[Rfam]
RNA sequence: UUUUCAUCUUUGACAGUGUCCAAAAUGAAAU
Numbered sequence: 001u002u003u004u005c006a007u008c009u010u011u012g013a014c015a016g017u018g019u020c021c022a023a024a025a026u027g028a029a030a031u
Base pairs, nucleotide, nucleotide: 002030003029004028005027006026007025009024010023011022012021014018
Iron response element II: a 31-nucleotide RNA from Sula dactylatra.
Rfam describes the family as follows. IRE, TFRC, SLC40A1, SDHB, SLC11A2, CDC42BPA, ACO2, ALAS2_H.SAPIENS, CDC14A, EPAS1, ALAS2, qoxD, Hao1, NDUFS1, transferrin, Aconitate.
Gene Ontology term of the family: response to iron ion.
The base pairs follow the family's consensus structure, which is taken from published work.